[Rfam]
RNA sequence: GGGGCAUGAAAGAAUCCCUCCCUCUUGUAGCAGUGGUUUAAACAGAGGUGCAAACAGCAAGUGGAUCUCGUCGCCUUUGGGGAGCUCUGGCUGUGCCCCUCAAAGUGAAUUUGGAGGUUCUACACUC
Numbered sequence: 001g002g003g004g005c006a007u008g009a010a011a012g013a014a015u016c017c018c019u020c021c022c023u024c025u026u027g028u029a030g031c032a033g034u035g036g037u038u039u040a041a042a043c044a045g046a047g048g049u050g051c052a053a054a055c056a057g058c059a060a061g062u063g064g065a066u067c068u069c070g071u072c073g074c075c076u077u078u079g080g081g082g083a084g085c086u087c088u089g090g091c092u093g094u095g096c097c098c099c100u101c102a103a104a105g106u107g108a109a110u111u112u113g114g115a116g117g118u119u120c121u122a123c124a125c126u127c
Base pairs, nucleotide, nucleotide: 004051005050006049007048013038014037015036016035018033019032021030063120064119065118066117067116068115069114075105076104077103078102079101080100081099082098084096085095
A member of the RNA family "Small nucleolar RNA SNORA68" from Propithecus coquereli, 127 nucleotides long. The organism belongs to Propithecus, within Eukaryota. The family has 26 seed sequences and 1,079 matches in Rfam 15.1. It scores 97 bits against the family's covariance model.